[Rfam]
RNA sequence: GCUAUAGAAAUGCCGAAUCCUGCUCAGGUACGGGGGAACCAAUUUAGGGGGUGAAACUUGAUCAACACGGCUUUUUCAAGUAGGGUGCCUGCAACCCUAACCCGUCAGCUAACCUCGGAGGCCAGUGAGGGGAGAAUCA
Numbered sequence: 001g002c003u004a005u006a007g008a009a010a011u012g013c014c015g016a017a018u019c020c021u022g023c024u025c026a027g028g029u030a031c032g033g034g035g036g037a038a039c040c041a042a043u044u045u046a047g048g049g050g051g052u053g054a055a056a057c058u059u060g061a062u063c064a065a066c067a068c069g070g071c072u073u074u075u076u077c078a079a080g081u082a083g084g085g086u087g088c089c090u091g092c093a094a095c096c097c098u099a100a101c102c103c104g105u106c107a108g109c110u111a112a113c114c115u116c117g118g119a120g121g122c123c124a125g126u127g128a129g130g131g132g133a134g135a136a137u138c139a
Base pairs, nucleotide, nucleotide: 012122013121014120019028020027031117032116033115034114035113040048049103050102051101057080058079059078060077083097084096085095086094
A member of the RNA family "c-di-AMP riboswitch aptamer (ydaO/yuaA leader)" from Sporomusa acidovorans, 139 nucleotides long.